[Rfam]
RNA sequence: AUAGCAGUGUAGCAUGCCCGUUUUGGUGAUAAACUCUGAUUUAUAUUUAUUAUUUAAUUGUUUGGGAUAACGGGGUGUUACAACCUA
Numbered sequence: 001a002u003a004g005c006a007g008u009g010u011a012g013c014a015u016g017c018c019c020g021u022u023u024u025g026g027u028g029a030u031a032a033a034c035u036c037u038g039a040u041u042u043a044u045a046u047u048u049a050u051u052a053u054u055u056a057a058u059u060g061u062u063u064g065g066g067a068u069a070a071c072g073g074g075g076u077g078u079u080a081c082a083a084c085c086u087a
Base pairs, nucleotide, nucleotide: 002087003086004085008082009081010080011079012078013077014076015075017074018073019072020071021070022069
Dot-bracket structure: .(((...((((((((.((((((..............................................))))))))))))))..)))
The record is an 87-nucleotide RNA sequence from Medicago truncatula, which matches "MIR2617 microRNA precursor family" in Rfam. The family's consensus secondary structure was predicted with RNAalifold. Taxonomically the source falls in Medicago (Eukaryota, Streptophytina, Euphyllophyta, Pentapetalae).